[Rfam]
RNA: Mitochondrial DNA control region secondary structure A
RNA sequence: UUUAUUGAUGGACUAGCGAUGAAGUACUUUACAAGCAUACGUAGCGUUUACAAACUCCUAUGUAAUUUGUGCAUUAAUGCUUGCCACAUGAAUAAUAUAUA
Numbered sequence: 001u002u003u004a005u006u007g008a009u010g011g012a013c014u015a016g017c018g019a020u021g022a023a024g025u026a027c028u029u030u031a032c033a034a035g036c037a038u039a040c041g042u043a044g045c046g047u048u049u050a051c052a053a054a055c056u057c058c059u060a061u062g063u064a065a066u067u068u069g070u071g072c073a074u075u076a077a078u079g080c081u082u083g084c085c086a087c088a089u090g091a092a093u094a095a096u097a098u099a100u101a
Stems, first nucleotide, its partner, number of pairs: 005092002008089003016080002019078002024040003027035003041055002044051001060074005